The record is a 298-nucleotide RNA from Probosciger aterrimus, which matches "7SK RNA" in Rfam. For this family Rfam cites "Transcription: surprising role for an elusive small nuclear RNA" (Blencowe, Curr Biol, 2002). It is annotated as a non-coding RNA gene. Pairs were carried over by alignment from the consensus structure, which is taken from published work. The organism belongs to Probosciger, within Eukaryota.
RNA sequence: GGAUGUGAGGGCAAUCUGGCUGCGACAUCUGUCACCCCAUUGAUCGCCAGGGUGUCCCCUUCCUCCCUCACCACUCCACAUGCGUCUCUCCCGAAGAUGCGCACUCGGUCGAAGAGGACGACCUUCCCCGAUACAGGCAGUACCGUUCAUCAGUCAUGGGUAUACGGUAGCUGCGCUCCCCUGCUAGAACCUCCAAACAAGCUCAAGGUCCAGUUGUAGGAGAACUCAGGAGAGUCAAGCUUCCAAGACUGCAGACACGUCCAAGUAAGAUGCUGCAUGUGACAGUCUGCCAUUCUUU
Numbered sequence: 001g002g003a004u005g006u007g008a009g010g011g012c013a014a015u016c017u018g019g020c021u022g023c024g025a026c027a028u029c030u031g032u033c034a035c036c037c038c039a040u041u042g043a044u045c046g047c048c049a050g051g052g053u054g055u056c057c058c059c060u061u062c063c064u065c066c067c068u069c070a071c072c073a074c075u076c077c078a079c080a081u082g083c084g085u086c087u088c089u090c091c092c093g094a095a096g097a098u099g100c101g102c103a104c105u106c107g108g109u110c111g112a113a114g115a116g117g118a119c120g121a122c123c124u125u126c127c128c129c130g131a132u133a134c135a136g137g138c139a140g141u142a143c144c145g146u147u148c149a150u151c152a153g154u155c156a157u158g159g160g161u162a163u164a165c166g167g168u169a170g171c172u173g174c175g176c177u178c179c180c181c182u183g184c185u186a187g188a189a190c191c192u193c194c195a196a197a198c199a200a201g202c203u204c205a206a207g208g209u210c211c212a213g214u215u216g217u218a219g220g221a222g223a224a225c226u227c228a229g230g231a232g233a234g235u236c237a238a239g240c241u242u243c244c245a246a247g248a249c250u251g252c253a254g255a256c257a258c259g260u261c262c263a264a265g266u267a268a269g270a271u272g273c274u275g276c277a278u279g280u281g282a283c284a285g286u287c288u289g290c291c292a293u294u295c296u297u298u
Base pairs, nucleotide, nucleotide: 001077002076003075005071006070007069008068009067010066011065014061018059019058024056025055026054027053028052029051033050035046086140087137088136089135091108092107093106094105096104109131110130111129116127117126118125170240171239172238176234177233180230181229182228183227191222192221193220194219197217198216199215200214263298264297265296267293269291271289272286273285274284275283